[Rfam]
The family of this 70-nucleotide sequence from Dasypus novemcinctus is "Small nucleolar RNA SNORD110". The pairing is the family consensus, mapped onto this sequence. Rfam links the family to the GO terms RNA processing and nucleolus. Taxonomically the source falls in Dasypus (Eukaryota, Metazoa, Chordata, Eutheria). Rfam classes the family as a C/D-box small nucleolar RNA. On this family, see Galardi et al., Mol Cell Biol 2002: "Purified box C/D snoRNPs are able to reproduce site-specific 2'-O-methylation of target RNA in vitro". The sequence is in the family's curated seed alignment.
RNA sequence: UUGCGGUGAUGACUUGCGAAUCUGUCAAUCCCCUGAGUGCAGUCGCUGAUGUCUCCAUGUCUCUGAGCAA
Numbered sequence: 001u002u003g004c005g006g007u008g009a010u011g012a013c014u015u016g017c018g019a020a021u022c023u024g025u026c027a028a029u030c031c032c033c034u035g036a037g038u039g040c041a042g043u044c045g046c047u048g049a050u051g052u053c054u055c056c057a058u059g060u061c062u063c064u065g066a067g068c069a070a
Stems, first nucleotide, its partner, number of pairs: 001070004